Shown here is a 94-nucleotide sequence from Leuconostoc carnosum, a member of the family "TPP riboswitch aptamer (THI element)". The base pairs follow the family's consensus structure, which is taken from published work. It scores 83 bits against the family's covariance model. Taxonomically the source falls in Leuconostoc carnosum (Bacteria, Bacillati, Bacillota, Lactobacillaceae).

RNA sequence: UUUUUGUACUAGGGGCGCCACUAUGCGUGGCUGAGAAGCACCCUUUGAACCUGAUCUGGUUAACACCAGCGUAGGAAAGUGCCAUACUGAUUGU
Numbered sequence: 001u002u003u004u005u006g007u008a009c010u011a012g013g014g015g016c017g018c019c020a021c022u023a024u025g026c027g028u029g030g031c032u033g034a035g036a037a038g039c040a041c042c043c044u045u046u047g048a049a050c051c052u053g054a055u056c057u058g059g060u061u062a063a064c065a066c067c068a069g070c071g072u073a074g075g076a077a078a079g080u081g082c083c084a085u086a087c088u089g090a091u092u093g094u
Base pairs, nucleotide, nucleotide: 006082007081008080009079010078011044012043013042014041016038017031018030019029020028021027050075051074052073053072056069057068058067059066